[Rfam]
RNA sequence: UUACGAAACGGCAAACCUGCUGAAAAGCAGGGACGCAAAGCUAUAGGGCCUUCACCGGAAUUAAGGAUAGGCAGCCUGGCUACCGAAA
Dot-bracket structure: (.........((...((((((....))))))..[))..((((..((((((...................))).])))))))......)
c-di-GMP-I-GGC riboswitch aptamer: an 88-nucleotide RNA from Bacillus sp. FJAT-18017. Pairs were carried over by alignment from the consensus structure, which is taken from published work. Lineage of the source: Bacteria > Bacillati > Bacillota > Caryophanales > Bacillus. Gene Ontology term of the family: cyclic-di-GMP binding.